[Rfam]
RNA sequence: CGGUGCGGCUUUAAGGGUCGUUGCUGAUGGGGCAGAAGUCAGCCGAGGCCGUAGUACCGGCGGGAAUCAUGCAUGGUUUGCCGGGAAGGGC
Numbered sequence: 001c002g003g004u005g006c007g008g009c010u011u012u013a014a015g016g017g018u019c020g021u022u023g024c025u026g027a028u029g030g031g032g033c034a035g036a037a038g039u040c041a042g043c044c045g046a047g048g049c050c051g052u053a054g055u056a057c058c059g060g061c062g063g064g065a066a067u068c069a070u071g072c073a074u075g076g077u078u079u080g081c082c083g084g085g086a087a088g089g090g091c
Base pairs, nucleotide, nucleotide: 001026002025005021006020007019008018009017010016011015039046040045048091049090050089057084058083059082060081061080062079063078064077
RNA: Group II catalytic intron D1-D4-1
Organism: Paenarthrobacter sp. YJN-5